Source information: U5 spliceosomal RNA: a 115-nucleotide RNA from Microcebus murinus. Rfam describes the family as follows. U5 RNA is a component of both types of known spliceosome. The precise function of this molecule is unknown, though it is known that the 5' loop is required for splice site selection and p220 binding, and that both the 3' stem-loop and the Sm site are important for Sm protein binding and cap methylation. The source organism's lineage runs through Eukaryota, Bilateria, Teleostomi, Tetrapoda and Microcebus. It is annotated as a spliceosomal small nuclear RNA. The match comes from Rfam's covariance-model search (44 bits). Rfam 15.1 lists 28,527 matches to the family in 2,489 species.
RNA sequence: CUGCUCUUGUUUUUCUUUAGAUCAUACAAAUCCUUUGCUUUUUAUUAAAGAGUUCAGUGAAGGGAAACGAAUUUGAGUCUUAAUGGUGUUUUUAACUGAUGUGUAUAACAUUAAA
Numbered sequence: 001c002u003g004c005u006c007u008u009g010u011u012u013u014u015c016u017u018u019a020g021a022u023c024a025u026a027c028a029a030a031u032c033c034u035u036u037g038c039u040u041u042u043u044a045u046u047a048a049a050g051a052g053u054u055c056a057g058u059g060a061a062g063g064g065a066a067a068c069g070a071a072u073u074u075g076a077g078u079c080u081u082a083a084u085g086g087u088g089u090u091u092u093u094a095a096c097u098g099a100u101g102u103g104u105a106u107a108a109c110a111u112u113a114a115a
Stems, first nucleotide, its partner, number of pairs: 003078004009068011028054002031051002034048002097113005